This 132-nucleotide RNA from Phytophthora palmivora belongs to the Rfam family "U11 spliceosomal RNA". Rfam links the family to the GO terms pre-mRNA 5'-splice site binding, mRNA 5'-splice site recognition and U11 snRNP.
[Rfam]
RNA sequence: AAAAAGGGCAGGCCUUGCCUAAGGCACAAAAUGCGGUUAUGCCGUGUUGUGGUGAAUCGCGAUCAGGAGAUUUGCCCUGCAUAAUUUCUGAGACGCCGCGUUGGAAUGGGCUUGGUAGGCUAAUUCCACCGG
Numbered sequence: 001a002a003a004a005a006g007g008g009c010a011g012g013c014c015u016u017g018c019c020u021a022a023g024g025c026a027c028a029a030a031a032u033g034c035g036g037u038u039a040u041g042c043c044g045u046g047u048u049g050u051g052g053u054g055a056a057u058c059g060c061g062a063u064c065a066g067g068a069g070a071u072u073u074g075c076c077c078u079g080c081a082u083a084a085u086u087u088c089u090g091a092g093a094c095g096c097c098g099c100g101u102u103g104g105a106a107u108g109g110g111c112u113u114g115g116u117a118g119g120c121u122a123a124u125u126c127c128a129c130c131g132g
Base pairs, nucleotide, nucleotide: 008080009079010078011077012076013024014023015022016021025051026050027049028048029047032046033045034044035043036042052075053074054073055072056071057070058069098130100129101128103127104126105125106124107123110120111119112118113117